This 157-nucleotide RNA from Chanos chanos belongs to the Rfam family "U1 spliceosomal RNA".
Pairs were carried over by alignment from the consensus structure, which is taken from published work.
RNA sequence: AUACUUACCUGGCAGGAAAGACACCAUGAUCACGAAGGUGGUUCACCCUGGGUGAGGCUUAGCCAUUGCACUUGGGUUAUGCUGACCUCUGCGAACUCUGCGAACUCUCGACUGCAUAAUUUGUGGUGGUGGGGGACUGCGUUCGCGCUUUCCCCUG
Numbered sequence: 001a002u003a004c005u006u007a008c009c010u011g012g013c014a015g016g017a018a019a020g021a022c023a024c025c026a027u028g029a030u031c032a033c034g035a036a037g038g039u040g041g042u043u044c045a046c047c048c049u050g051g052g053u054g055a056g057g058c059u060u061a062g063c064c065a066u067u068g069c070a071c072u073u074g075g076g077u078u079a080u081g082c083u084g085a086c087c088u089c090u091g092c093g094a095a096c097u098c099u100g101c102g103a104a105c106u107c108u109c110g111a112c113u114g115c116a117u118a119a120u121u122u123g124u125g126g127u128g129g130u131g132g133g134g135g136a137c138u139g140c141g142u143u144c145g146c147g148c149u150u151u152c153c154c155c156u157g
Base pairs, nucleotide, nucleotide: 012115013114014113015112016048020044021043023042024041025040026039027038050089051088052087054086056083057082058081060079061078062077063076064075092110093109094108095106097103131156132155133154134153135152136151139148140147141146
The source organism's lineage runs through Eukaryota, Vertebrata, Osteoglossocephalai, Ostariophysi and Chanos. About the family: U1 is a small nuclear RNA (snRNA) component of the spliceosome (involved in pre-mRNA splicing). A search with the family's covariance model found it, with a score of 129 bits. On this family, see Charenton et al., Science 2019: "Mechanism of 5' splice site transfer for human spliceosome activation".